RNA sequence: UGUGAUAUAUUCUUUUUAGAUAGUCCUAUCUAGCCAUCUUUAGCUCCCGGUUUUUUAGGACUAUCCUCAAAAAUGCUC
Numbered sequence: 001u002g003u004g005a006u007a008u009a010u011u012c013u014u015u016u017u018a019g020a021u022a023g024u025c026c027u028a029u030c031u032a033g034c035c036a037u038c039u040u041u042a043g044c045u046c047c048c049g050g051u052u053u054u055u056u057a058g059g060a061c062u063a064u065c066c067u068c069a070a071a072a073a074u075g076c077u078c
Base pairs, nucleotide, nucleotide: 019065020064021063022062023061024060025059026058027057032052033051034050035049